[Rfam]
Nucleotides: 079
Stems, first nucleotide, its partner, number of pairs: 001079004
Number, partner (000 for none) and nucleotide at each position: 001079g002078a003077g004076a005000u006000a007000u008000g009000a010000u011000g012000a013000g014000g015000u016000u017000u018000a019000a020000a021000u022000u023000g024000g025000u026000c027000c028000g029000u030000g031000u032000u033000u034000c035000u036000g037000a038000u039000u040000a041000a042000a043000c044000c045000g046000u047000g048000a049000c050000c051000g052000a053000c054000a055000g056000u057000u058000u059000u060000c061000g062000u063000a064000a065000c066000c067000a068000a069000a070000c071000u072000c073000u074000g075000a076004u077003c078002u079001c

Shown here is a 79-nucleotide RNA from Hibiscus trionum, a member of the family "Small nucleolar RNA SNORD18". A reference for the family is Prislei et al. (1993), "Two different snoRNAs are encoded in introns of amphibian and human L1 ribosomal protein genes", Nucleic Acids Res. Lineage of the source: Eukaryota > Magnoliopsida > Mesangiospermae > malvids > Hibiscus. The base pairs follow the family's consensus structure, which was predicted with PFOLD. Clan: SNORD18 clan. Rfam classes the family as a C/D-box small nucleolar RNA.